Shown here is a 76-nucleotide RNA sequence from Pipistrellus kuhlii, a member of the family "mir-9229 microRNA precursor family". Pairs were carried over by alignment from the consensus structure, which was predicted with RNAalifold.
RNA sequence: GAGACUCCCUUGUGGAGCAGGGCUUGCUUCAGUGGGGCUUUGGUGCUCACUGAGUCUUUCCCUUGAAUGUGUCACU
Numbered sequence: 001g002a003g004a005c006u007c008c009c010u011u012g013u014g015g016a017g018c019a020g021g022g023c024u025u026g027c028u029u030c031a032g033u034g035g036g037g038c039u040u041u042g043g044u045g046c047u048c049a050c051u052g053a054g055u056c057u058u059u060c061c062c063u064u065g066a067a068u069g070u071g072u073c074a075c076u
Base pairs, nucleotide, nucleotide: 001075003073004072005071007069010066011065012064014062015061017059019057021056022055023054029053030052031051032050033049034048035047036046037044038043
Gene Ontology terms of the family: miRNA-mediated post-transcriptional gene silencing and RISC complex.